This 135-nucleotide RNA belongs to the Rfam family "Small nucleolar RNA SNORA33".
Pairs were carried over by alignment from the consensus structure, which was predicted with PFOLD.
By type it is an H/ACA-box small nucleolar RNA.
It scores 92 bits against the family's covariance model.
RNA sequence: GAGCCAGUUCAGUGUGUCCGCUCAACUUGAAAAUGUUUUGCGGAGCUUGUUUCACAAUAACACUGGCAAAGUAAAGCCACAGUACGAGCCUUGAAGACUUUGUGGUCUCUGAGGUCCCAAGAGAUGGCUACAUCU
Dot-bracket structure: ..(((((.........(((((..................)))))..................)))))........((((........((((((..(((......)))..)))))).........)))).......
ACA33 is a member of the H/ACA class of snoRNA that guide the sites of modification of uridines to pseudouridines.